A member of the RNA family "Small nucleolar RNA SNORA25" from Nyctereutes procyonoides, 117 nucleotides long. About the family: ACA25 is a member of the H/ACA class of snoRNA that guide the sites of modification of uridines to pseudouridines. Rfam links the family to the GO terms nucleolus and RNA processing. Taxonomically the source falls in Nyctereutes (Eukaryota, Bilateria, Deuterostomia, Dipnotetrapodomorpha).
[Rfam]
RNA sequence: AGGUCAUUUCAAAGAGGGCUUUGUGGAACUAAAACCAAGGGCUCUUAACUCUGUGACCAAAUAUUAGAGUUCUCCAUAGCAUGUAAUAGUGCUAUGUUUUCCUGAAGAGAUACAAGA
Number, nucleotide and partner (000 for none) at each position: 001a000002g058003g057004u056005c055006a054007u053008u000009u000010c000011a000012a000013a000014g046015a045016g044017g043018g042019c041020u040021u039022u038023g000024u000025g036026g035027a000028a000029c000030u000031a000032a000033a000034a000035c026036c025037a000038a022039g021040g020041g019042c018043u017044c016045u015046u014047a000048a000049c000050u000051c000052u000053g007054u006055g005056a004057c003058c002059a000060a000061a000062u000063a000064u000065u000066a000067g000068a000069g000070u000071u110072c109073u108074c107075c000076a000077u000078a103079g102080c000081a100082u000083g000084u000085a000086a095087u094088a093089g000090u000091g000092c000093u088094a087095u086096g000097u000098u000099u000100u081101c000102c079103u078104g000105a000106a000107g074108a073109g072110a071111u000112a000113c000114a000115a000116g000117a000